[Rfam]
The record is a 128-nucleotide RNA from Jaculus jaculus, which matches "Small nucleolar RNA SNORA33" in Rfam. From the family's description: ACA33 is a member of the H/ACA class of snoRNA that guide the sites of modification of uridines to pseudouridines. Rfam classes the family as an H/ACA-box small nucleolar RNA. Rfam links the family to the GO terms RNA processing and nucleolus.
RNA sequence: AAGGCAGCCAGUAAAUCUGCUUAUCUGAAUGUGUUUCUGCAGAAGUUUGGAAAGAGCUGGCAAUAGCGAUGUCAUUUGAUGAGCUUAAGGACAGCAGGUCAUCACCAUCCUUGAAAAUGGCUGCAAAA
Numbered sequence: 001a002a003g004g005c006a007g008c009c010a011g012u013a014a015a016u017c018u019g020c021u022u023a024u025c026u027g028a029a030u031g032u033g034u035u036u037c038u039g040c041a042g043a044a045g046u047u048u049g050g051a052a053a054g055a056g057c058u059g060g061c062a063a064u065a066g067c068g069a070u071g072u073c074a075u076u077u078g079a080u081g082a083g084c085u086u087a088a089g090g091a092c093a094g095c096a097g098g099u100c101a102u103c104a105c106c107a108u109c110c111u112u113g114a115a116a117a118u119g120g121c122u123g124c125a126a127a128a
Stems, first nucleotide, its partner, number of pairs: 003061001005059003016043005071121004083108001086104001088102001090100003